[Rfam]
RNA sequence: GGUCAUGAGCGCCAGCGUCAAACCCCGGUUUGCUGGCCGGCAACCCUCCCGCUGCGGUGGGGUGCCCCGGGUGAGGACCUGGUCCGGCGAGAGCCGCCGGUCAAAGCAGCGCA
Numbered sequence: 001g002g003u004c005a006u007g008a009g010c011g012c013c014a015g016c017g018u019c020a021a022a023c024c025c026c027g028g029u030u031u032g033c034u035g036g037c038c039g040g041c042a043a044c045c046c047u048c049c050c051g052c053u054g055c056g057g058u059g060g061g062g063u064g065c066c067c068c069g070g071g072u073g074a075g076g077a078c079c080u081g082g083u084c085c086g087g088c089g090a091g092a093g094c095c096g097c098c099g100g101u102c103a104a105a106g107c108a109g110c111g112c113a
Base pairs, nucleotide, nucleotide: 001079002078003077004076009038011037012036013035014034015033016032021030022029039066040065041064044062045061046060048057049056082102084100085099086098087097088096089095
RNA: SAM (S-adenosyl methionine) riboswitch aptamer
Organism: Sinomonas humi